RNA sequence: ACAGGCACUAGUAUGCCACAAUGAUAUCAUUCUUAAACUUCAUUUUCUAAGCUUUUCCCCUACAACUCCCUUUGAUUGAAAAAAAUAGAAAUCCACUUUUUUUCUCCAAUCAAAGAGUAGAAAUCCACUUCAUUUCUCCAAAAUAAAAGAGAGUUGUAGAGGAAAAGCAUAGAAAAUAAAGUGU
Numbered sequence: 001a002c003a004g005g006c007a008c009u010a011g012u013a014u015g016c017c018a019c020a021a022u023g024a025u026a027u028c029a030u031u032c033u034u035a036a037a038c039u040u041c042a043u044u045u046u047c048u049a050a051g052c053u054u055u056u057c058c059c060c061u062a063c064a065a066c067u068c069c070c071u072u073u074g075a076u077u078g079a080a081a082a083a084a085a086u087a088g089a090a091a092u093c094c095a096c097u098u099u100u101u102u103u104c105u106c107c108a109a110u111c112a113a114a115g116a117g118u119a120g121a122a123a124u125c126c127a128c129u130u131c132a133u134u135u136c137u138c139c140a141a142a143a144u145a146a147a148a149g150a151g152a153g154u155u156g157u158a159g160a161g162g163a164a165a166a167g168c169a170u171a172g173a174a175a176a177u178a179a180a181g182u183g184u
Stems, first nucleotide, its partner, number of pairs: 055164004060159009070149004075144003078136003083130002086127001088125002

Background: Rfam assigns this 184-nucleotide RNA sequence from Phaseolus vulgaris to the family "MIR2119 microRNA precursor family". Gene Ontology terms of the family: RISC complex and miRNA-mediated post-transcriptional gene silencing. Pairs were carried over by alignment from the consensus structure, which was predicted with RNAalifold. The source organism's lineage runs through Eukaryota, Pentapetalae, rosids, fabids and Phaseolus. A search with the family's covariance model found it, with a score of 85 bits.